[Rfam]
This 231-nucleotide RNA sequence from Miscanthus lutarioriparius belongs to the Rfam family "MIR6217 microRNA precursor family". Pairs were carried over by alignment from the consensus structure, which was predicted with RNAalifold. The family has 2 seed sequences and 2,266 matches in Rfam 15.1. It scores 139 bits against the family's covariance model. Lineage of the source: Eukaryota > Viridiplantae > Streptophyta > Tracheophyta > Miscanthus. Rfam links the family to the GO terms RISC complex and miRNA-mediated post-transcriptional gene silencing.
RNA sequence: UAGCUACAAAAUAACUUAUUUUGUAGCCACUUUGAGUUACGAUAAUUACUAUGUUAAUUUAUGAGAUUAUAGUAACUCCUUACUAAUCGGUUUACUAUAAUGUUAUGAUAAAUAUCCCCAUGUGCUAUAGUAACCCAACUAUAAAUAAAUAUGUAUUGACAUUAUCAUAAAUUAGUAUAUAAAAUUAUAAAUAAAUGAAGGUGGCUCUGAGAAUAACUUAUUUUGUAGCUG
Numbered sequence: 001u002a003g004c005u006a007c008a009a010a011a012u013a014a015c016u017u018a019u020u021u022u023g024u025a026g027c028c029a030c031u032u033u034g035a036g037u038u039a040c041g042a043u044a045a046u047u048a049c050u051a052u053g054u055u056a057a058u059u060u061a062u063g064a065g066a067u068u069a070u071a072g073u074a075a076c077u078c079c080u081u082a083c084u085a086a087u088c089g090g091u092u093u094a095c096u097a098u099a100a101u102g103u104u105a106u107g108a109u110a111a112a113u114a115u116c117c118c119c120a121u122g123u124g125c126u127a128u129a130g131u132a133a134c135c136c137a138a139c140u141a142u143a144a145a146u147a148a149a150u151a152u153g154u155a156u157u158g159a160c161a162u163u164a165u166c167a168u169a170a171a172u173u174a175g176u177a178u179a180u181a182a183a184a185u186u187a188u189a190a191a192u193a194a195a196u197g198a199a200g201g202u203g204g205c206u207c208u209g210a211g212a213a214u215a216a217c218u219u220a221u222u223u224u225g226u227a228g229c230u231g
Stems, first nucleotide, its partner, number of pairs: 001231014016216007023208001025206009037194003042188006050179013065166003069162002074156001080148003087143001089140004093132007101124003107117001